[Rfam]
RNA sequence: ACCCGGUGAAAGACAUGGGUAGUGAGACGCGAUGCCUCUAAGAGACGUCUCACUAUUCUGUUUUUCGCCGGGCC
Numbered sequence: 001a002c003c004c005g006g007u008g009a010a011a012g013a014c015a016u017g018g019g020u021a022g023u024g025a026g027a028c029g030c031g032a033u034g035c036c037u038c039u040a041a042g043a044g045a046c047g048u049c050u051c052a053c054u055a056u057u058c059u060g061u062u063u064u065u066c067g068c069c070g071g072g073c074c
Stems, first nucleotide, its partner, number of pairs: 008066008017058003021054009
Shown here is a 74-nucleotide RNA from Plectus sambesii, a member of the family "mir-71 microRNA precursor family". Rfam 15.1 lists 372 matches to the family in 291 species.